[Rfam]
Nucleotides: 142
Stems, first nucleotide, its partner, number of pairs: 004064008017052004021047004074135005086124002090120001095115009
Number, partner (000 for none) and nucleotide at each position: 001000a002000c003000u004064g005063c006062u007061g008060a009059u010058u011057u012000a013000g014000c015000c016000a017052c018051a019050g020049u021047a022046a023045c024044a025000u026000u027000u028000g029000g030000c031000u032000u033000u034000u035000u036000u037000a038000c039000u040000u041000c042000u043000u044024u045023g046022u047021u048000a049020a050019c051018u052017g053000c054000u055000a056000g057011a058010a059009a060008u061007c062006a063005g064004c065000u066000a067000a068000a069000a070000c071000a072000a073000u074135u075134u076133c077132a078131u079000a080000a081000u082000u083000u084000u085000a086124g087123g088000a089000a090120c091000c092000a093000u094000u095115g096114a097113a098112a099111g100110a101109a102108u103107u104000a105000u106000c107103a108102a109101u110100u111099u112098u113097u114096u115095u116000u117000a118000g119000u120090g121000g122000g123087c124086c125000g126000u127000a128000u129000u130000u131078a132077u133076g134075a135074a136000a137000a138000c139000a140000c141000u142000u
Background
A member of the RNA family "small nucleolar RNA snoR27" from Plasmodium malariae, 142 nucleotides long. The literature on the family includes a 2007 paper in RNA by Chakrabarti et al., "Structural RNAs of known and unknown function identified in malaria parasites by comparative genomics and RNA analysis". Lineage of the source: Eukaryota > Sar > Haemosporida > Plasmodium > Plasmodium.